The family of this 167-nucleotide RNA sequence from Paenibacillus sp. FSL H8-0548 is "c-di-AMP riboswitch aptamer (ydaO/yuaA leader)". The match comes from Rfam's covariance-model search (85 bits). Rfam links the family to the GO terms regulation of gene expression and cyclic-di-AMP binding.
RNA sequence: CGCAUAGCUACGCCGAAUUUCCUAAGGAAAACGGGGGAACCAUAAAGCUGUCAGCAUUGACAGCAUGGGGUGAAUUUUUAAAGCGGGAUUUAUCCUGCUGCAAAAUAGGGCUGCCUGUCCAGGCCCGAAUCCGACAGCUAACCUCGUAGGCAUCUGGAACAGGACUC
Number, nucleotide and partner (000 for none) at each position: 001c000002g000003c000004a000005u000006a000007g000008c000009u000010a000011c000012g151013c150014c149015g000016a000017a000018u030019u029020u028021c000022c000023u000024a000025a000026g000027g000028a020029a019030a018031a147032c146033g145034g144035g143036g142037g000038a000039a000040c000041c067042a066043u000044a000045a000046a000047g000048c000049u000050g000051u000052c000053a000054g000055c000056a000057u000058u000059g000060a000061c000062a000063g000064c000065a000066u042067g041068g132069g131070g130071u000072g000073a000074a000075u000076u105077u104078u103079u102080a000081a000082a000083g000084c000085g000086g000087g000088a000089u000090u000091u000092a000093u000094c000095c000096u000097g000098c000099u000100g000101c000102a079103a078104a077105a076106u000107a000108g126109g125110g124111c123112u000113g000114c000115c000116u000117g000118u000119c000120c000121a000122g000123g111124c110125c109126c108127g000128a000129a000130u070131c069132c068133g000134a000135c000136a000137g000138c000139u000140a000141a000142c036143c035144u034145c033146g032147u031148a000149g014150g013151c012152a000153u000154c000155u000156g000157g000158a000159a000160c000161a000162g000163g000164a000165c000166u000167c000
For this family Rfam cites "New RNA motifs suggest an expanded scope for riboswitches in bacterial genetic control" (Barrick et al., Proc Natl Acad Sci U S A, 2004). Lineage of the source: Bacteria > Bacillota > Bacilli > Paenibacillaceae > Paenibacillus.